About this RNA:
A member of the RNA family "Small nucleolar RNA U54" from Malus baccata, 90 nucleotides long. It scores 44 bits against the family's covariance model. Rfam links the family to the GO terms RNA processing and nucleolus. Rfam describes the family as follows. U54 is a C/D box small nucleolar RNA, which acts as a methylation guide for 18S ribosomal RNA in plants. NCBI's taxonomy places the organism under Eukaryota, Viridiplantae, Gunneridae, rosids, Malus.
[Rfam]
RNA sequence: UGCUCUGUGAUUAUGUGCCUGCAAUGGGCAAUAUACGUUAUUUUGAUUCAAAACAUGACUGGAUAACUUUUGAAAGAAAUUAUGAGAGCA
Numbered sequence: 001u002g003c004u005c006u007g008u009g010a011u012u013a014u015g016u017g018c019c020u021g022c023a024a025u026g027g028g029c030a031a032u033a034u035a036c037g038u039u040a041u042u043u044u045g046a047u048u049c050a051a052a053a054c055a056u057g058a059c060u061g062g063a064u065a066a067c068u069u070u071u072g073a074a075a076g077a078a079a080u081u082a083u084g085a086g087a088g089c090a
Base pairs, nucleotide, nucleotide: 001090002089003088004087005086
Dot-bracket structure: (((((................................................................................)))))